The record is a 407-nucleotide RNA from Labrys okinawensis, which matches "Bacterial RNase P class A" in Rfam. Lineage of the source: Bacteria > Pseudomonadati > Alphaproteobacteria > Xanthobacteraceae > Labrys. Rfam links the family to the GO terms ribonuclease P activity, tRNA processing and dimeric ribonuclease P complex. From the family's description: Ribonuclease P (RNase P) is a ubiquitous endoribonuclease, found in archaea, bacteria and eukarya as well as chloroplasts and mitochondria. Its best characterised activity is the generation of mature 5'-ends of tRNAs by cleaving the 5'-leader elements of precursor-tRNAs. By type it is a ribozyme.
Nucleotides: 407
Base pairs, nucleotide, nucleotide: 001403002402003401004400005399006398007397008396009395010394011392012355013354014353015352016351017350018349020046021045022044023043024042026040027039028038051390052389053388055387056386057385058384059383060235061234062233063232069288070287073231074230075229076228077227078092079091080090081089082088093107094105095104096103097102108226109225113224114223115220116219117218130166131165132162133161134160135159136158137157139155140154141153142152143151144150174192175191176190177189178188179187193215194213195212196211198209199208200207201206239311240310241309242308249302250301251300252299253298254297280295281294282293283292284291319338320337321336322335323334324333325332326331
Number, partner (000 for none) and nucleotide at each position: 001403c002402u003401a004400g005399c006398u007397g008396g009395c010394c011392g012355g013354g014353c015352g016351g017350c018349c019000g020046c021045u022044g023043u024042u025000g026040c027039c028038a029000g030000g031000c032000u033000c034000g035000a036000c037000c038028u039027g040026g041000g042024a043023a044022u045021g046020g047000a048000g049000g050000a051390a052389a053388g054000u055387c056386c057385g058384g059383g060235c061234u062233c063232c064000a065000c066000g067000g068000a069288a070287a071000u072000a073231g074230g075229g076228u077227g078092c079091c080090g081089g082088u083000u084000a085000a086000u087000g088082g089081c090080c091079g092078g093107c094105g095104g096103g097102g098000g099000u100000g101000a102097c103096c104095u105094u106000a107093g108226g109225g110000a111000u112000a113224g114223c115220g116219c117218c118000a119000c120000a121000g122000a123000a124000a125000g126000c127000a128000a129000a130166c131165c132162g133161c134160c135159u136158c137157g138000a139155c140154a141153g142152g143151c144150u145000c146000u147000u148000c149000g150144a151143g152142c153141u154140u155139g156000c157137c158136g159135g160134g161133g162132u163000a164000a165131g166130g167000g168000u169000g170000a171000a172000a173000g174192g175191g176190u177189g178188c179187g180000g181000u182000a183000a184000g185000a186000g187179c188178g189177c190176a191175c192174c193215g194213c195212g196211c197000g198209g199208c200207c201206g202000g203000u204000a205000a206201c207200g208199g209198c210000a211196g212195c213194g214000g215193c216000a217000u218117g219116g220115c221000a222000a223114g224113c225109c226108c227077c228076a229075c230074c231073c232063g233062g234061a235060g236000c237000a238000a239311g240310a241309c242308c243000g244000a245000a246000u247000a248000g249302g250301g251300a252299c253298g254297g255000c256000c257000g258000c259000g260000g261000c262000g263000g264000u265000c266000u267000u268000c269000g270000g271000a272000c273000g274000c275000g276000c277000c278000g279000g280295g281294g282293c283292g284291c285000a286000u287070u288069u289000c290000c291284g292283c293282g294281c295280c296000g297254c298253c299252g300251u301250c302249c303000g304000g305000g306000u307000u308242g309241g310240u311239u312000g313000c314000g315000u316000u317000g318000a319338g320337g321336u322335c323334a324333c325332c326331g327000g328000u329000g330000a331326c332325g333324g334323u335322g336321g337320c338319c339000c340000c341000a342000g343000a344000u345000g346000a347000a348000u349018g350017g351016u352015c353014g354013c355012c356000a357000c358000g359000u360000c361000c362000g363000c364000g365000c366000a367000a368000g369000c370000g371000g372000g373000c374000c375000a376000u377000a378000c379000a380000g381000a382000a383059c384058c385057c386056g387055g388053c389052u390051u391000a392011c393000a394010g395009g396008c397007c398006a399005g400004c401003u402002a403001g404000c405000c406000u407000u